[Rfam]
Nucleotides: 168
Base pairs, nucleotide, nucleotide: 005164006163007162008161009160010159012156013097015152016151017150020146021145022144025142026141027140028139029138030137031136032135039115040114041113042112043111045075046074047073048072049071054065055064056063057062082106083105084104085103088100089099090098117130118129119128
Number, partner (000 for none) and nucleotide at each position: 001000a002000a003000a004000u005164u006163a007162g008161a009160a010159u011000a012156u013097u014000a015152g016151g017150u018000g019000a020146g021145g022144c023000u024000c025142c026141u027140a028139u029138a030137u031136a032135a033000a034000u035000a036000u037000a038000a039115g040114c041113u042112g043111c044000u045075g046074c047073c048072c049071u050000u051000a052000a053000c054065c055064a056063u057062c058000g059000c060000a061000a062057g063056a064055u065054g066000c067000c068000a069000c070000u071049g072048g073047g074046g075045u076000u077000u078000a079000a080000c081000a082106g083105g084104u085103a086000c087000u088100a089099c090098c091000g092000u093000a094000u095000c096000a097013a098090g099089g100088u101000u102000u103085u104084a105083c106082u107000u108000a109000a110000c111043g112042c113041a114040g115039c116000u117130g118129g119128a120000u121000u122000u123000u124000u125000g126000u127000g128119u129118c130117c131000a132000a133000a134000g135032u136031u137030a138029u139028a140027u141026a142025g143000u144022g145021c146020u147000a148000a149000a150017a151016c152015u153000a154000u155000u156012a157000c158000a159010g160009u161008u162007u163006u164005a165000a166000g167000a168000a